The record is a 275-nucleotide RNA sequence from Rhinolophus ferrumequinum, which matches "HIF-1 alpha IRES" in Rfam. NCBI's taxonomy places the organism under Eukaryota, Dipnotetrapodomorpha, Yinpterochiroptera, Rhinolophoidea, Rhinolophus.
[Rfam]
RNA sequence: CUCGUCUGAGGGGACGCGAGGAUUGCCACCGCUUCGGCCAGUGAUUCGGAUCAGGCCCUGACUAGCAGCCCGAGGGGAGGCUCUUCUGAGCCGAGCCUAGAGUCCGGCGAUUGCUGCCUGCUCCUCCUGCCUCUGGUCUCACGAGGGGUUUCCCGCCUCGCACCUCUGGACGUGCCUCUCCUUCUCUCCGCGCGUGUGGAGGGAGCCAGCGCUUAGGCCGGAGCGAGCCUGGGGGCCGCCGGCCGUGAAGGCAUCGCGGGGACCGAUUCGCCAUG
Numbered sequence: 001c002u003c004g005u006c007u008g009a010g011g012g013g014a015c016g017c018g019a020g021g022a023u024u025g026c027c028a029c030c031g032c033u034u035c036g037g038c039c040a041g042u043g044a045u046u047c048g049g050a051u052c053a054g055g056c057c058c059u060g061a062c063u064a065g066c067a068g069c070c071c072g073a074g075g076g077g078a079g080g081c082u083c084u085u086c087u088g089a090g091c092c093g094a095g096c097c098u099a100g101a102g103u104c105c106g107g108c109g110a111u112u113g114c115u116g117c118c119u120g121c122u123c124c125u126c127c128u129g130c131c132u133c134u135g136g137u138c139u140c141a142c143g144a145g146g147g148g149u150u151u152c153c154c155g156c157c158u159c160g161c162a163c164c165u166c167u168g169g170a171c172g173u174g175c176c177u178c179u180c181c182u183u184c185u186c187u188c189c190g191c192g193c194g195u196g197u198g199g200a201g202g203g204a205g206c207c208a209g210c211g212c213u214u215a216g217g218c219c220g221g222a223g224c225g226a227g228c229c230u231g232g233g234g235g236c237c238g239c240c241g242g243c244c245g246u247g248a249a250g251g252c253a254u255c256g257c258g259g260g261g262a263c264c265g266a267u268u269c270g271c272c273a274u275g
Base pairs, nucleotide, nucleotide: 001013002012003011016026017025018024019023029055030054077151078150079149081148124145125144126143128141173208174207176205177204178203179202185200186199187198219242221240223239224238225237
Rfam's curators write: This family represents the hypoxia-inducible factor 1-alpha internal ribosome entry site. HIF-1a is a subunit of the HIF-1 transcription factor, which induces transcription of several genes involved in the cellular response to hypoxia. The HIF-1a IRES allows translation to be maintained under hypoxic cell conditions that inhibit cap-dependent translation. It is annotated as an internal ribosome entry site. For this family Rfam cites "Hypoxia-inducible factor-1alpha mRNA contains an internal ribosome entry site that allows efficient translation during normoxia and hypoxia" (Lang et al., Mol Biol Cell, 2002).